About this RNA: JUMPstart RNA: a 39-nucleotide RNA from Serratia ficaria. Rfam 15.1 lists 288 matches to the family in 230 species. The source organism's lineage runs through Bacteria, Pseudomonadati, Enterobacterales, Yersiniaceae and Serratia. It scores 46 bits against the family's covariance model. The base pairs follow the family's consensus structure, which is taken from published work.

[Rfam]
RNA sequence: CAGUCAGUUGGUAGCUGUUGAGCCAAGGGCGGUAGCGUG
Numbered sequence: 001c002a003g004u005c006a007g008u009u010g011g012u013a014g015c016u017g018u019u020g021a022g023c024c025a026a027g028g029g030c031g032g033u034a035g036c037g038u039g
Base pairs, nucleotide, nucleotide: 008026009025010024011023012022
Dot-bracket structure: .......(((((.........))))).............